[Rfam]
Rfam assigns this 72-nucleotide RNA from Orthohepacivirus hominis to the family "Hepatitis C virus stem-loop SL2531 and SL2549AU". The literature on the family includes a 2016 paper in Mol Cell by Pirakitikulr et al., "The Coding Region of the HCV Genome Contains a Network of Regulatory RNA Structures". The organism belongs to Orthohepacivirus, within Viruses. It is annotated as a cis-regulatory element. The sequence is in the family's curated seed alignment.
Nucleotides: 072
Base pairs, nucleotide, nucleotide: 006023007022008021010019011018012017024067025066029063031061034058037055038054
Number, partner (000 for none) and nucleotide at each position: 001000u002000c003000u004000u005000g006023g007022c008021a009000g010019a011018u012017g013000c014000u015000c016000g017012c018011g019010u020000g021008u022007g023006c024067g025066u026000c027000g028000c029063c030000c031061u032000u033000u034058g035000g036000a037055u038054g039000a040000u041000g042000c043000u044000c045000c046000u047000a048000a049000u050000a051000u052000c053000a054038c055037a056000g057000g058034c059000a060000g061031a062000a063029g064000c065000g066025g067024c068000c069000a070000u071000g072000g